[Rfam]
Record summary:
The family of this 102-nucleotide RNA from an Armatimonadota bacterium is "c-di-GMP-I riboswitch aptamer".
RNA sequence: GGUUGUAAAAGGCAAACUGCUUGAAAAGGCAGGACGCAAAGCCAUGGGCCUACGGAGAACAACGGCAUACCGCCUCGUCCUCUACGGCAGCCGGUUGCCGCA
Numbered sequence: 001g002g003u004u005g006u007a008a009a010a011g012g013c014a015a016a017c018u019g020c021u022u023g024a025a026a027a028g029g030c031a032g033g034a035c036g037c038a039a040a041g042c043c044a045u046g047g048g049c050c051u052a053c054g055g056a057g058a059a060c061a062a063c064g065g066c067a068u069a070c071c072g073c074c075u076c077g078u079c080c081u082c083u084a085c086g087g088c089a090g091c092c093g094g095u096u097g098c099c100g101c102a
Base pairs, nucleotide, nucleotide: 012037013036017032018031019030020029021028022027040096041095042094043093046092047091048088049087050086055082056081057080